[Rfam]
Nucleotides: 063
Base pairs, nucleotide, nucleotide: 007060008059009058010057011056012055013054014053015052016051017050018049022045025042026041027040029038030037
Number, partner (000 for none) and nucleotide at each position: 001000g002000a003000a004000a005000a006000u007060a008059a009058a010057g011056g012055a013054g014053c015052a016051a017050u018049a019000a020000u021000c022045a023000a024000c025042u026041u027040c028000c029038u030037g031000u032000u033000c034000g035000u036000u037030c038029a039000a040027g041026a042025a043000g044000a045022u046000u047000g048000g049018u050017a051016u052015u053014g054013c055012u056011c057010c058009u059008u060007u061000a062000u063000u

Overview:
The family of this 63-nucleotide RNA is "Plastid-psbA-4 3UTR RNA". From the family's description: Plastid psbA-4 is a non-coding RNA (ncRNA) present in plastids. It was identified in inverted repeat sequences in the 3 prime untranslate region (3UTR) of photosystem II quinone-binding protein (psbA). The base pairs follow the family's consensus structure, which was predicted with LocARNA. On this family, see Richter et al., Plant Commun 2023: "Retrograde signaling in plants: A critical review focusing on the GUN pathway and beyond".